This 80-nucleotide sequence from Ophiophagus hannah belongs to the Rfam family "mir-219 microRNA precursor family". Gene Ontology terms of the family: miRNA-mediated post-transcriptional gene silencing and RISC complex. The organism belongs to Ophiophagus, within Eukaryota. For this family Rfam cites "Vertebrate microRNA genes" (Lim et al., Science, 2003).

Nucleotides: 080
Base pairs, nucleotide, nucleotide: 002079004077005076006075009072010071011070012069014068015067016066017065018064021061022060023059024058025057026056027055028054029053030052031051
Number, partner (000 for none) and nucleotide at each position: 001000u002079u003000u004077g005076c006075u007000c008000c009072u010071g011070a012069u013000u014068g015067u016066c017065c018064a019000a020000a021061c022060g023059c024058a025057a026056u027055u028054c029053u030052u031051g032000u033000c034000c035000a036000g037000a038000a039000a040000a041000a042000c043000a044000u045000g046000c047000a048000a049000a050000c051031c052030a053029a054028g055027a056026a057025u058024u059023g060022u061021g062000u063000c064018u065017g066016g067015a068014c069012a070011u071010c072009g073000g074000u075006g076005g077004c078000u079002g080000a